[Rfam]
RNA: TPP riboswitch aptamer (THI element)
Organism: [Clostridium] innocuum
Nucleotides: 105
Base pairs, nucleotide, nucleotide: 007092008091009090010089011055012054013053014052016049017029018028019027036048037047038046039045061086062085063084064083068079069078070077
Number, partner (000 for none) and nucleotide at each position: 001000u002000a003000c004000a005000a006000a007092a008091a009090a010089a011055u012054g013053g014052g015000g016049u017029g018028c019027c020000u021000a022000c023000g024000u025000a026000u027019g028018g029017c030000u031000g032000a033000g034000a035000u036048c037047g038046g039045a040000g041000a042000u043000c044000a045039u046038c047037c048036g049016g050000g051000a052014c053013c054012c055011a056000a057000g058000g059000a060000a061086c062085c063084u064083g065000a066000u067000a068079c069078g070077g071000g072000u073000a074000a075000u076000g077070c078069c079068g080000g081000c082000g083064u084063a085062g086061g087000g088000a089010u090009u091008u092007u093000a094000u095000a096000g097000g098000g099000a100000a101000g102000c103000a104000c105000a